The family of this 99-nucleotide RNA from Capnocytophaga cynodegmi is "SAM-I/IV (S-adenosyl methionine) riboswitch aptamer". The base pairs follow the family's consensus structure, which is taken from published work. A reference for the family is Trausch et al. (2014), "Structural basis for diversity in the SAM clan of riboswitches", PNAS.

[Rfam]
RNA sequence: UGCCAUCAUCAGGAGUUUCUGAGUGUCAGGACACCAACCGAGCUAAAGCCAGCCACGGUGGUUUAGAAUGAGGGCAACCUGCCAAAAACAAAGGUUUCU
Numbered sequence: 001u002g003c004c005a006u007c008a009u010c011a012g013g014a015g016u017u018u019c020u021g022a023g024u025g026u027c028a029g030g031a032c033a034c035c036a037a038c039c040g041a042g043c044u045a046a047a048g049c050c051a052g053c054c055a056c057g058g059u060g061g062u063u064u065a066g067a068a069u070g071a072g073g074g075c076a077a078c079c080u081g082c083c084a085a086a087a088a089c090a091a092a093g094g095u096u097u098c099u
Stems, first nucleotide, its partner, number of pairs: 006071004015032001017031005033062003038058003042053002047095001049093001073083004
Notes
Its Rfam clan is "SAM clan". Its family is annotated with regulation of gene expression and S-adenosylmethionine metabolic process in the Gene Ontology. Rfam 15.1 lists 567 matches to the family in 508 species.